[Rfam]
RNA sequence: UCUCCCGCUUCACCUCCCUGAGCGGGCGCCUUAUGCAUAUAAGGCAUGUAUUACCCCCGGCCCCCCCUUUUGCCGGGGGUUUUUUUU
Numbered sequence: 001u002c003u004c005c006c007g008c009u010u011c012a013c014c015u016c017c018c019u020g021a022g023c024g025g026g027c028g029c030c031u032u033a034u035g036c037a038u039a040u041a042a043g044g045c046a047u048g049u050a051u052u053a054c055c056c057c058c059g060g061c062c063c064c065c066c067c068u069u070u071u072g073c074c075g076g077g078g079g080u081u082u083u084u085u086u087u
Stems, first nucleotide, its partner, number of pairs: 004026006028045007054079008
Dot-bracket structure: ...((((((...........)))))).(((((((....)))))))........((((((((..........))))))))........